The record is a 61-nucleotide RNA sequence from Pristionchus pacificus, which matches "mir-8364 microRNA precursor family" in Rfam.
The match comes from Rfam's covariance-model search (72 bits).
The family's consensus secondary structure was predicted with RNAalifold.
[Rfam]
RNA sequence: UCUUCAUUUCGGCCACUCUCUCAUCGGUCAGAGAGGCGAGAGAGUGUGUGAAAUGAAGAGA
Numbered sequence: 001u002c003u004u005c006a007u008u009u010c011g012g013c014c015a016c017u018c019u020c021u022c023a024u025c026g027g028u029c030a031g032a033g034a035g036g037c038g039a040g041a042g043a044g045u046g047u048g049u050g051a052a053a054u055g056a057a058g059a060g061a
Base pairs, nucleotide, nucleotide: 001059002058003057004056005055006054007053010050014046015045016044017043019041020040021039022038